[Rfam]
This 320-nucleotide RNA from Penelope pileata belongs to the Rfam family "Nuclear RNase P". Rfam's curators write: Ribonuclease P (RNase P) is a ubiquitous endoribonuclease, found in archaea, bacteria and eukarya as well as chloroplasts and mitochondria. The organism belongs to Penelope, within Eukaryota.
RNA sequence: UCCGGAGGAAGCUCACCGUCGAGGCCACGCACGGGGUGCGCGUCACCCGCUGUCAGCGCCUCGGGGAAGGUCUGAGGGAAGGGCCAGGCGCGGCCCCAGCAGGGUCCCGCCCGCGUGGGCGGGUGAGCCACCAGCAAGGGGGGGCGCCGCGCGGCACGGCCUGGGCAGGAGAAGCCGAGCGGCCCCUGGCGCUGCUGCGGGCCCCGGCGGAUGCUCGUGGCCCCGCGGCGCUUUGAGACAGACUCACGGCCGGCACGCUGAGUCCAAUGGGUGAGGUGGGGCACGGCCGCACAACCUAAUUCAGACUACUCUCCGCCGGA
Numbered sequence: 001u002c003c004g005g006a007g008g009a010a011g012c013u014c015a016c017c018g019u020c021g022a023g024g025c026c027a028c029g030c031a032c033g034g035g036g037u038g039c040g041c042g043u044c045a046c047c048c049g050c051u052g053u054c055a056g057c058g059c060c061u062c063g064g065g066g067a068a069g070g071u072c073u074g075a076g077g078g079a080a081g082g083g084c085c086a087g088g089c090g091c092g093g094c095c096c097c098a099g100c101a102g103g104g105u106c107c108c109g110c111c112c113g114c115g116u117g118g119g120c121g122g123g124u125g126a127g128c129c130a131c132c133a134g135c136a137a138g139g140g141g142g143g144g145c146g147c148c149g150c151g152c153g154g155c156a157c158g159g160c161c162u163g164g165g166c167a168g169g170a171g172a173a174g175c176c177g178a179g180c181g182g183c184c185c186c187u188g189g190c191g192c193u194g195c196u197g198c199g200g201g202c203c204c205c206g207g208c209g210g211a212u213g214c215u216c217g218u219g220g221c222c223c224c225g226c227g228g229c230g231c232u233u234u235g236a237g238a239c240a241g242a243c244u245c246a247c248g249g250c251c252g253g254c255a256c257g258c259u260g261a262g263u264c265c266a267a268u269g270g271g272u273g274a275g276g277u278g279g280g281g282c283a284c285g286g287c288c289g290c291a292c293a294a295c296c297u298a299a300u301u302c303a304g305a306c307u308a309c310u311c312u313c314c315g316c317c318g319g320a
Base pairs, nucleotide, nucleotide: 001320002319003318004317007314008313009312012275013274014273015272016271017270020063021062022061023060024059034048035047036046037045038044072304073303074302075301076300082251083250084249085248092106093105094104095103096102107122108121109120110119111118112117123247124246125245126244127243129241143232144231145230146229147228148227149226150225151224276292277291278290280288281287282286